[Rfam]
MIR480 microRNA precursor family: a 145-nucleotide sequence from Populus trichocarpa. The base pairs follow the family's consensus structure, which was predicted with WAR. A search with the family's covariance model found it, with a score of 81 bits.

RNA sequence: UAAUCUAUCUAGGACAAAUCCUCAUCUAGUUAUGGCAGACCCUCACCUGGCUGUCUAGAAUCACCCAUUAUCGCAAGCCCAACUACAUCAUAGGGCAAUCAAGGCUUGAUGAACAAACUUUAAAGCUGUCAUUGUCGAGUAGUUU
Numbered sequence: 001u002a003a004u005c006u007a008u009c010u011a012g013g014a015c016a017a018a019u020c021c022u023c024a025u026c027u028a029g030u031u032a033u034g035g036c037a038g039a040c041c042c043u044c045a046c047c048u049g050g051c052u053g054u055c056u057a058g059a060a061u062c063a064c065c066c067a068u069u070a071u072c073g074c075a076a077g078c079c080c081a082a083c084u085a086c087a088u089c090a091u092a093g094g095g096c097a098a099u100c101a102a103g104g105c106u107u108g109a110u111g112a113a114c115a116a117a118c119u120u121u122a123a124a125g126c127u128g129u130c131a132u133u134g135u136c137g138a139g140u141a142g143u144u145u
Stems, first nucleotide, its partner, number of pairs: 005142003008138002012135001014133001018129002023125001025123001028119004

Gene Ontology terms of the family: RISC complex and miRNA-mediated post-transcriptional gene silencing.